[Rfam]
RNA sequence: GGACGUUGGUCCCCCAUAGGGGACGCAGUUCGAUCUCAAACAAGCAACGGGGUUUGAGA
Numbered sequence: 001g002g003a004c005g006u007u008g009g010u011c012c013c014c015c016a017u018a019g020g021g022g023a024c025g026c027a028g029u030u031c032g033a034u035c036u037c038a039a040a041c042a043a044g045c046a047a048c049g050g051g052g053u054u055u056g057a058g059a
Base pairs, nucleotide, nucleotide: 004049005048006047007046008045010023011022012021013020014019034059035058036057037056038055039054040053041052

Shown here is a 59-nucleotide RNA sequence, a member of the family "Glutamine-II riboswitch aptamer". Its family is annotated with glutamine binding in the Gene Ontology. A reference for the family is Huang et al. (2019), "Structure and ligand binding of the glutamine-II riboswitch", Nucleic Acids Res.